[Rfam]
RNA: NiCo (Nickel/Cobalt) riboswitch aptamer
Organism: Streptococcus sp. zg-36
RNA sequence: GAAAUAGAAUAUGAACAAGCAGCAACGUUUCGUUGCGUAGCCGGGUCUAUAAGGGUUUAGACAGCAGAAACUUGUUUGGUGAUUAGCUGAGCAUAUCUGUGAGACAGUA
Dot-bracket structure: ...........((..(..((.((((((...))))))...))...(((((........))))).(((((...........................)))))..).))...